This 83-nucleotide RNA from Anaerocolumna jejuensis belongs to the Rfam family "c-di-GMP-I-GGC riboswitch aptamer". Rfam 15.1 lists 1,298 matches to the family in 717 species. Pairs were carried over by alignment from the consensus structure, which is taken from published work.

[Rfam]
RNA sequence: AAUGAAAAAGGCAAACCUGCCGAAAGACAGGGACGCAAAGCCACGGGCCUAAGACGUAUGUUAAGGCAGCCGGGUUGCCAUGA
Number, nucleotide and partner (000 for none) at each position: 001a000002a000003u080004g079005a000006a000007a000008a000009a000010g000011g036012c035013a000014a000015a000016c031017c030018u029019g028020c000021c026022g000023a000024a000025a000026g021027a000028c019029a018030g017031g016032g000033a000034c069035g012036c011037a000038a000039a076040g075041c074042c073043a000044c072045g071046g070047g067048c066049c065050u000051a000052a000053g000054a000055c000056g000057u000058a000059u000060g000061u000062u000063a000064a000065g049066g048067c047068a000069g034070c046071c045072g044073g042074g041075u040076u039077g000078c000079c004080a003081u000082g000083a000
The match comes from Rfam's covariance-model search (77 bits).